[Rfam]
Background
Shown here is a 103-nucleotide RNA sequence from Oceanobacillus limi, a member of the family "BsrF". On this family, see Saito et al., Gene 2008: "Novel small RNA-encoding genes in the intergenic regions of Bacillus subtilis". Lineage of the source: Bacteria > Bacillati > Bacilli > Bacillaceae > Oceanobacillus. Rfam classes the family as a small RNA. The match comes from Rfam's covariance-model search (63 bits). Pairs were carried over by alignment from the consensus structure, which was predicted with WAR.
RNA sequence: GCGAUGAGCUGAUUUGUGUAAGUCGAAGAAUAUGCAAUCUUGUGUGUGAACCACAUGUUUCUUCGCCACAAAUACGUAGGAGACGCCUUUUUUAGAAGGCGUC
Dot-bracket structure: .............(((((.....(((((((........(..(((.......)))..).))))))).)))))..........(((((((((....)))))))))